Rfam assigns this 148-nucleotide sequence from Aspergillus terreus to the family "A. fumigatus sRNA Afu_254".
The base pairs follow the family's consensus structure, which was predicted with WAR.
NCBI's taxonomy places the organism under Eukaryota, Fungi, leotiomyceta, Aspergillus, Aspergillus subgen. Circumdati.
It is annotated as a small RNA.
[Rfam]
RNA sequence: CUACAAAGUAUCACUCCUACAACUACUACUACUUUUGCGAAUCUCUUCGUUGUCAUACAACCAUCAUCCACCAUGUCUCCCUGCUCCUGCAACUGCUGCUCCGGUGACUGCAAGUCUUGCUCUUGCGGCUCCUGCAAGGUAUGUCGCU
Numbered sequence: 001c002u003a004c005a006a007a008g009u010a011u012c013a014c015u016c017c018u019a020c021a022a023c024u025a026c027u028a029c030u031a032c033u034u035u036u037g038c039g040a041a042u043c044u045c046u047u048c049g050u051u052g053u054c055a056u057a058c059a060a061c062c063a064u065c066a067u068c069c070a071c072c073a074u075g076u077c078u079c080c081c082u083g084c085u086c087c088u089g090c091a092a093c094u095g096c097u098g099c100u101c102c103g104g105u106g107a108c109u110g111c112a113a114g115u116c117u118u119g120c121u122c123u124u125g126c127g128g129c130u131c132c133u134g135c136a137a138g139g140u141a142u143g144u145c146g147c148u
Base pairs, nucleotide, nucleotide: 082106083105084104085103089099090098091097110135111134112133119126120125